[Rfam]
RNA sequence: AAUCCCUAUGAUGACUUAUAAUGAAAAAUGUUAAAAGUAGUGACUGAUAUCUUCUUGAUUAAAAACUAUCAGCUCUGAGGGAUU
Number, nucleotide and partner (000 for none) at each position: 001a084002a083003u082004c081005c080006c079007u000008a000009u000010g000011a000012u000013g000014a000015c000016u000017u000018a000019u000020a000021a000022u000023g000024a000025a000026a000027a000028a000029u000030g000031u000032u000033a000034a000035a000036a000037g000038u000039a000040g000041u000042g000043a000044c000045u000046g000047a000048u000049a000050u000051c000052u000053u000054c000055u000056u000057g000058a000059u000060u000061a000062a000063a000064a000065a000066c000067u000068a000069u000070c000071a000072g000073c000074u000075c000076u000077g000078a000079g006080g005081g004082a003083u002084u001
Notes
Small nucleolar RNA R21: an 84-nucleotide RNA sequence from Brassica carinata. The family's consensus secondary structure was predicted with PFOLD. A reference for the family is Barneche et al. (2001), "Identification of 66 box C/D snoRNAs in Arabidopsis thaliana: extensive gene duplications generated multiple isoforms predicting new ribosomal RNA 2'-O-methylation sites", J Mol Biol.